About this RNA:
SAM (S-adenosyl methionine) riboswitch aptamer: a 114-nucleotide RNA from Luteipulveratus halotolerans. Rfam links the family to the GO terms regulation of gene expression and S-adenosylmethionine metabolic process. NCBI's taxonomy places the organism under Bacteria, Actinomycetota, Actinomycetes, Micrococcales, Luteipulveratus. The base pairs follow the family's consensus structure, which is taken from published work.

RNA sequence: CGUCAAGAGUCUCAGCGACAAGCCCCGGCUGGCUGAGCGGCAACCCUCCACCGCGGUGGGGUGCCCCGGGUGAGGACAGGGUCGGGCCUGCAGGUGGUCCGACAAGCGCGGGGC
Number, nucleotide and partner (000 for none) at each position: 001c000002g077003u076004c075005a000006a000007g000008a000009g038010u000011c037012u036013c035014a034015g033016c032017g000018a000019c000020a000021a030022g029023c000024c000025c000026c000027g000028g000029c022030u021031g000032g016033c015034u014035g013036a012037g011038c009039g065040g064041c063042a000043a000044c061045c060046c059047u000048c056049c055050a000051c000052c000053g000054c000055g049056g048057u000058g000059g046060g045061g044062u000063g041064c040065c039066c000067c000068g000069g000070g000071u000072g000073a000074g000075g004076a003077c002078a000079g000080g000081g103082u102083c101084g100085g099086g098087c097088c096089u000090g000091c000092a000093g000094g000095u000096g088097g087098u086099c085100c084101g083102a082103c081104a000105a000106g000107c000108g000109c000110g000111g000112g000113g000114c000